[Rfam]
Nucleotides: 125
Base pairs, nucleotide, nucleotide: 001125002124003123004122005121006120007119008118009117011115012114013113015111016110017109018108019107020106021105022104023103024102025101026100027099028098030096031095032094033093034092035091036090037089038088039087041085042084043083044082045081046080047079
Number, partner (000 for none) and nucleotide at each position: 001125g002124a003123a004122a005121u006120a007119u008118a009117a010000a011115a012114a013113a014000u015111u016110g017109u018108u019107u020106c021105u022104u023103a024102a025101c026100u027099u028098u029000a030096a031095a032094c033093u034092a035091a036090a037089a038088a039087a040000g041085c042084u043083a044082a045081g046080a047079a048000c049000c050000g051000g052000u053000u054000c055000u056000u057000u058000a059000a060000a061000a062000a063000g064000u065000u066000u067000c068000u069000u070000a071000a072000g073000a074000a075000c076000c077000g078000g079047u080046u081045c082044u083043u084042a085041g086000u087039u088038u089037u090036u091035u092034u093033a094032g095031u096030u097000a098028a099027a100026a101025g102024u103023u104022a105021a106020g107019a108018a109017a110016u111015a112000c113013u114012u115011u116000c117009u118008u119007a120006u121005a122004u123003u124002u125001c